The family of this 130-nucleotide sequence from Muntiacus reevesi is "Small nucleolar RNA SNORA30/SNORA37 family". Rfam classes the family as an H/ACA-box small nucleolar RNA. Taxonomically the source falls in Muntiacus (Eukaryota, Deuterostomia, Vertebrata, Sarcopterygii). It scores 96 bits against the family's covariance model. Its family is annotated with nucleolus and RNA processing in the Gene Ontology.

RNA sequence: CUAGCACUUUCACAGAUCCUCCUUGGGCAGUGGGGCCAGGAUUUGGGAGCUGGUCCUGAAAUUGAAAACCCUUGAUUACAUCCUUGCCUUGGGACUGUGUCAGUGACAACUGUCACUCAGGGGGACAGAG
Number, nucleotide and partner (000 for none) at each position: 001c000002u000003a057004g056005c000006a054007c053008u052009u000010u000011c000012a000013c045014a044015g043016a000017u041018c040019c039020u038021c035022c034023u033024u032025g000026g000027g000028c000029a000030g000031u000032g024033g023034g022035g021036c000037c000038a020039g019040g018041a017042u000043u015044u014045g013046g000047g000048a000049g000050c000051u000052g008053g007054u006055c000056c004057u003058g000059a000060a000061a000062u000063u000064g000065a000066a000067a000068a000069c124070c123071c122072u120073u119074g118075a117076u000077u115078a000079c000080a113081u112082c000083c000084u109085u108086g107087c000088c105089u103090u102091g101092g100093g000094a000095c000096u000097g000098u000099g000100u092101c091102a090103g089104u000105g088106a000107c086108a085109a084110c000111u000112g081113u080114c000115a077116c000117u075118c074119a073120g072121g000122g071123g070124g069125a000126c000127a000128g000129a000130g000